Rfam assigns this 141-nucleotide sequence from Miscanthus lutarioriparius to the family "Small nucleolar RNA F1/F2/snoR5a".
It is annotated as an H/ACA-box small nucleolar RNA.
NCBI's taxonomy places the organism under Eukaryota, Viridiplantae, Streptophytina, Embryophyta, Miscanthus.
This family contains F1, F2 and snoR5a sequences, all of which are members of the the H/ACA class of snoRNA that guide the sites of modification of uridines to pseudouridines.
Rfam 15.1 lists 325 matches to the family in 97 species.
RNA sequence: CAAUGCCAUUUGGUAUCGACUUGCGCAGUCAUUCUUUGUGAUUGUGUGUCUCAAAACAUGGCGUAUCACAAGGGGAACGGAUCUUAUGACCUUUGGUUGCUUAUUUAUGAGUUUCCGCUUACUAUAUGCCCGCUUACAUGU
Dot-bracket structure: ...((((((........(((..((((((((.........))))))))))).......))))))............(.(((.............(((..(((........)))..)))............))).).......